[Rfam]
RNA: Xanthine riboswitch aptamer (NMT1 RNA)
RNA sequence: GGGGCGAGUAGAAGCGGUCUGGACAUGGGUCCUGGACAUUGCUCCACAC
Numbered sequence: 001g002g003g004g005c006g007a008g009u010a011g012a013a014g015c016g017g018u019c020u021g022g023a024c025a026u027g028g029g030u031c032c033u034g035g036a037c038a039u040u041g042c043u044c045c046a047c048a049c
Stems, first nucleotide, its partner, number of pairs: 006044005015034001018036002021032004